RpsF leader: an 86-nucleotide RNA from Shimwellia blattae. On this family, see Fu et al., RNA 2014: "Bacterial RNA motif in the 5' UTR of rpsF interacts with an S6:S18 complex". The base pairs follow the family's consensus structure. Rfam links the family to the GO terms negative regulation of translation and protein binding. Conserved and widely distributed to many bacterial species RNA structure. By type it is a cis-regulatory leader.

[Rfam]
RNA sequence: GCCGCACUAAACACUCGUUCCUUGCCUCCCAGGGCCGCGGUUGACCCGUACAGGAGGCUGAAUAAUCCGUAAGGAGCAAUUCGAUG
Numbered sequence: 001g002c003c004g005c006a007c008u009a010a011a012c013a014c015u016c017g018u019u020c021c022u023u024g025c026c027u028c029c030c031a032g033g034g035c036c037g038c039g040g041u042u043g044a045c046c047c048g049u050a051c052a053g054g055a056g057g058c059u060g061a062a063u064a065a066u067c068c069g070u071a072a073g074g075a076g077c078a079a080u081u082c083g084a085u086g
Stems, first nucleotide, its partner, number of pairs: 017077007024058006032047003